Notes
The record is an 81-nucleotide RNA sequence from Stegastes partitus, which matches "mir-17 microRNA precursor family" in Rfam. This family represents the microRNA (miRNA) precursor mir-17, family, which includes mir-20, mir-91, and mir-103. miRNAs are transcribed as ~70nt precursors (modelled here) and subsequently processed by the Dicer enzyme to give a ~22nt product. In this case the mature sequence comes from the 3' arm of the precursor. It scores 55 bits against the family's covariance model. The source organism's lineage runs through Eukaryota, Deuterostomia, Actinopterygii, Osteoglossocephalai and Stegastes. The family has 234 seed sequences and 4,687 matches in Rfam 15.1.

RNA sequence: UUCUCCAGCUAAGGUGCAUCUAGUGUAGUUAGUGAAGUAGUUCAGCAUCUACUGCCCUAGUUGCUCCUUCUGGCUGGAGGG
Numbered sequence: 001u002u003c004u005c006c007a008g009c010u011a012a013g014g015u016g017c018a019u020c021u022a023g024u025g026u027a028g029u030u031a032g033u034g035a036a037g038u039a040g041u042u043c044a045g046c047a048u049c050u051a052c053u054g055c056c057c058u059a060g061u062u063g064c065u066c067c068u069u070c071u072g073g074c075u076g077g078a079g080g081g
Stems, first nucleotide, its partner, number of pairs: 003079004008074003012068003016064003020060004025055002028053001030051003